[Rfam]
RNA sequence: CCAGUCGGCCGGGCGGCCGCACCCGCAAUCGCCGAAAGGUGGUGGGUGAGGAAAGUCCGGGCUCCAUGGAAAUGCGGUGCCGGCUAACGGCCGGCGGGGGCGACCCCAGGGAAAGUGCCACAGAAAGCAGACCGCCGCGCUUAUUGCGCGGUAAGGGUGAAAGGGUGGGGUAAGAGCCCACCGCGCGCCUGGCAACAGGAGCGGCACGGCAAACCCCACCGGGAGCAAGACCGAAUAGGGAUGGCUUGGAGGGCAACCUUCAGGGGCUGUUUCCGGCUCGCCAUCCGGGUAGGUUGCGUGAGAUGCGUGGCAACACGCAUCCAAGAUGAAUGGCCGCCACGUUCCCGUUUCGCAAGAGGCGGGGCCAUACAAAACCCGGCUUACAGGCCGACUGGCACU
Number, nucleotide and partner (000 for none) at each position: 001c395002c394003a393004g392005u391006c390007g389008g388009c387010c386011g384012g338013g337014c336015g335016g334017c333018c332019g000020c048021a047022c046023c045024c044025g043026c042027a000028a040029u039030c038031g000032c000033c000034g000035a000036a000037a000038g030039g029040u028041g000042g026043u025044g024045g023046g022047u021048g020049a000050g000051g000052a000053a382054a381055g380056u000057c379058c378059g377060g376061g375062c225063u224064c223065c222066a000067u000068g000069g000070a000071a272072a271073u000074g000075c221076g220077g219078u218079g217080c094081c093082g092083g091084c090085u000086a000087a000088c000089g000090g084091c083092c082093g081094g080095c109096g107097g106098g105099g104100g000101c000102g000103a000104c099105c098106c097107c096108a000109g095110g216111g215112a000113a000114a000115g214116u213117g210118c209119c208120a000121c000122a000123g000124a000125a000126a000127g000128c000129a000130g000131a000132c156133c155134g152135c151136c150137g149138c148139g147140c146141u000142u000143a000144u000145u000146g140147c139148g138149c137150g136151g135152u134153a000154a000155g133156g132157g000158u000159g000160a000161a000162a000163g000164g182165g181166u180167g179168g178169g177170g000171u000172a000173a000174g000175a000176g000177c169178c168179c167180a166181c165182c164183g205184c203185g202186c201187g000188c199189c198190u197191g196192g000193c000194a000195a000196c191197a190198g189199g188200a000201g186202c185203g184204g000205c183206a000207c000208g119209g118210c117211a000212a000213a116214c115215c111216c110217c079218a078219c077220c076221g075222g065223g064224a063225g062226c000227a000228a000229g295230a294231c293232c292233g000234a000235a000236u000237a000238g000239g286240g285241a284242u283243g282244g281245c000246u000247u000248g000249g000250a000251g000252g000253g000254c000255a000256a000257c000258c000259u000260u000261c000262a000263g000264g279265g278266g277267c276268u275269g000270u000271u072272u071273c000274c000275g268276g267277c266278u265279c264280g000281c244282c243283a242284u241285c240286c239287g000288g000289g000290u000291a000292g232293g231294u230295u229296g000297c000298g000299u000300g000301a000302g321303a320304u319305g318306c317307g316308u315309g314310g000311c000312a000313a000314c309315a308316c307317g306318c305319a304320u303321c302322c000323a000324a000325g000326a000327u000328g000329a000330a000331u000332g018333g017334c016335c015336g014337c013338c012339a000340c000341g000342u000343u000344c000345c000346c000347g000348u000349u000350u000351c000352g000353c000354a000355a000356g000357a000358g000359g000360c000361g000362g000363g000364g000365c000366c000367a000368u000369a000370c000371a000372a000373a000374a000375c061376c060377c059378g058379g057380c055381u054382u053383a000384c011385a000386g010387g009388c008389c007390g006391a005392c004393u003394g002395g001396c000397a000398c000399u000
RNA: Bacterial RNase P class A